[Rfam]
RNA sequence: UUUUAGCCCGGAUGGAAGCGGCAUCCUUUUUGGCUCGCCCUUGCGAAACCAAAAAGAUACAGUGAACAGCCGGAUUAGCU
Numbered sequence: 001u002u003u004u005a006g007c008c009c010g011g012a013u014g015g016a017a018g019c020g021g022c023a024u025c026c027u028u029u030u031u032g033g034c035u036c037g038c039c040c041u042u043g044c045g046a047a048a049c050c051a052a053a054a055a056g057a058u059a060c061a062g063u064g065a066a067c068a069g070c071c072g073g074a075u076u077a078g079c080u
Stems, first nucleotide, its partner, number of pairs: 009072003013068002018063002023058003029053005035046003